[Rfam]
RNA: Nuclear RNase P
RNA sequence: UGUGGGGAGUUUGCAUGAGGGGCUACGAUCGUGUAUUUAUUGCACUAUUUGCCCUUGGGAAGGUCUGAGAUGAUGCCGCCUUUUGUGGAGGUCCGUGAUGGGCUCCCGUGCAAUCAGCGGGGCGGGCAAAGAGAAACGUCAUGCGGUUCUGGUUAUGAAUGACGCAUUCUGUGCUGACUAUCUCCUGCCGCAUAGACUUGGGACAUGCUCGUGGCAAGAAUUUAAAGCUCGAUAUGCAAAGCGCCAUUCUAGUGGUGUAACACAAUUCAGACUACUCCCUCACGCA
Numbered sequence: 001u002g003u004g005g006g007g008a009g010u011u012u013g014c015a016u017g018a019g020g021g022g023c024u025a026c027g028a029u030c031g032u033g034u035a036u037u038u039a040u041u042g043c044a045c046u047a048u049u050u051g052c053c054c055u056u057g058g059g060a061a062g063g064u065c066u067g068a069g070a071u072g073a074u075g076c077c078g079c080c081u082u083u084u085g086u087g088g089a090g091g092u093c094c095g096u097g098a099u100g101g102g103c104u105c106c107c108g109u110g111c112a113a114u115c116a117g118c119g120g121g122g123c124g125g126g127c128a129a130a131g132a133g134a135a136a137c138g139u140c141a142u143g144c145g146g147u148u149c150u151g152g153u154u155a156u157g158a159a160u161g162a163c164g165c166a167u168u169c170u171g172u173g174c175u176g177a178c179u180a181u182c183u184c185c186u187g188c189c190g191c192a193u194a195g196a197c198u199u200g201g202g203a204c205a206u207g208c209u210c211g212u213g214g215c216a217a218g219a220a221u222u223u224a225a226a227g228c229u230c231g232a233u234a235u236g237c238a239a240a241g242c243g244c245c246a247u248u249c250u251a252g253u254g255g256u257g258u259a260a261c262a263c264a265a266u267u268c269a270g271a272c273u274a275c276u277c278c279c280u281c282a283c284g285c286a
Stems, first nucleotide, its partner, number of pairs: 001286004005280003010240007018056005031045005065270005074216004090104005105121005122212007138197003241258007